Background: Streptomyces-metH RNA: a 144-nucleotide RNA from Streptomyces sp. NWU339. It scores 81 bits against the family's covariance model. Lineage of the source: Bacteria > Bacillati > Actinomycetes > Kitasatosporales > Streptomyces.
RNA sequence: UUCGUCCGACCAGUGGACAUCCCGAACAUCGGGGCGCGGUCCCCGAUACCCUGGCGGCGUGCCUCUGCCCGGGAGCACCACGAGGGUGCUUUUCGGACAGACGUAAAGCCGACAGCCGUCGCACCUGAGGGAGCCCCGUACAUG
Numbered sequence: 001u002u003c004g005u006c007c008g009a010c011c012a013g014u015g016g017a018c019a020u021c022c023c024g025a026a027c028a029u030c031g032g033g034g035c036g037c038g039g040u041c042c043c044c045g046a047u048a049c050c051c052u053g054g055c056g057g058c059g060u061g062c063c064u065c066u067g068c069c070c071g072g073g074a075g076c077a078c079c080a081c082g083a084g085g086g087u088g089c090u091u092u093u094c095g096g097a098c099a100g101a102c103g104u105a106a107a108g109c110c111g112a113c114a115g116c117c118g119u120c121g122c123a124c125c126u127g128a129g130g131g132a133g134c135c136c137c138g139u140a141c142a143u144g
Stems, first nucleotide, its partner, number of pairs: 060105003065100003108122002111120003
Overview:
The family's RNA type in Rfam is small RNA.